[Rfam]
This 79-nucleotide sequence belongs to the Rfam family "CyVA-1 RNA".
Cyanobacteria, Acidobacteria (1 example), Verrucomicrobia (1 example).
Rfam classes the family as a small RNA.
RNA sequence: GCACCGGAUGAGGGUUUUGCUGUUGUGACUCAUUGCUUUUCACCGAAGGAGAGCGAAUUGACAGGUGAAAAGACGGUAC
Numbered sequence: 001g002c003a004c005c006g007g008a009u010g011a012g013g014g015u016u017u018u019g020c021u022g023u024u025g026u027g028a029c030u031c032a033u034u035g036c037u038u039u040u041c042a043c044c045g046a047a048g049g050a051g052a053g054c055g056a057a058u059u060g061a062c063a064g065g066u067g068a069a070a071a072g073a074c075g076g077u078a079c
Stems, first nucleotide, its partner, number of pairs: 001079001003077004009032004037071008
Dot-bracket structure: (.((((..((((................))))....((((((((...................))))))))..)))).)